[Rfam]
RNA sequence: GGCAUGAAAAUGUCGGGCCUGACGAACCCGCGCACCCGAGUCCCCCAGUUGGGGAAGGGAUCCUUGCAUCCCACCCUCCUGCAGGAA
Numbered sequence: 001g002g003c004a005u006g007a008a009a010a011u012g013u014c015g016g017g018c019c020u021g022a023c024g025a026a027c028c029c030g031c032g033c034a035c036c037c038g039a040g041u042c043c044c045c046c047a048g049u050u051g052g053g054g055a056a057g058g059g060a061u062c063c064u065u066g067c068a069u070c071c072c073a074c075c076c077u078c079c080u081g082c083a084g085g086a087a
Base pairs, nucleotide, nucleotide: 002031003030011024012023013022014021015020033059035057041055042054043053044052045051

The record is an 87-nucleotide RNA sequence from Aedes flavivirus, which matches "Insect-specific Flavivirus exoribonuclease-resistant RNA element" in Rfam. Pairs were carried over by alignment from the consensus structure, which was predicted with LocARNA. Rfam describes the family as follows. The exoribonuclease-resistant RNA elements (xrRNA) are described throughout all groups of flaviviruses. Usually, each virus harbors two xrRNAs, xrRNA1 and xrRNA2, in the beginning of the 3' UTR. The formation of these stem-loops, especially xrRNA1, is vital to ensure resistance against XRN1 activity. The Y-shaped stem-loop is also termed SL II and SL IV, respectively. In order to function as xrRNA, the sequence downstream is needed as well, since the upper loop region forms a pseudoknot (PK) with the single-stranded region directly downstream to its respective hairpin. By type it is a cis-regulatory element. On this family, see Steckelberg et al., RNA 2020: "The crystal structure of a Polerovirus exoribonuclease-resistant RNA shows how diverse sequences are integrated into a conserved fold". The sequence is in the family's curated seed alignment.